[Rfam]
RNA sequence: AUAUAAUGCUAGGAACAGGCGGUCAUCAUGGCGCAGCCGGGCGGAAAGCAGCAGGUAUGUAUUAAAGCCUGCGGGACCUUA
Numbered sequence: 001a002u003a004u005a006a007u008g009c010u011a012g013g014a015a016c017a018g019g020c021g022g023u024c025a026u027c028a029u030g031g032c033g034c035a036g037c038c039g040g041g042c043g044g045a046a047a048g049c050a051g052c053a054g055g056u057a058u059g060u061a062u063u064a065a066a067g068c069c070u071g072c073g074g075g076a077c078c079u080u081a
Stems, first nucleotide, its partner, number of pairs: 011079003016075001018038003022032004041049002051072006
Description:
The record is an 81-nucleotide sequence from Pelosinus fermentans, which matches "NiCo (Nickel/Cobalt) riboswitch aptamer" in Rfam. Its Rfam clan is "NiCo_riboswitches". It scores 43 bits against the family's covariance model. The source organism's lineage runs through Bacteria, Bacillota, Sporomusaceae, Pelosinus and Pelosinus fermentans. On this family, see Furukawa et al., Mol Cell 2015: "Bacterial riboswitches cooperatively bind Ni(2+) or Co(2+) ions and control expression of heavy metal transporters".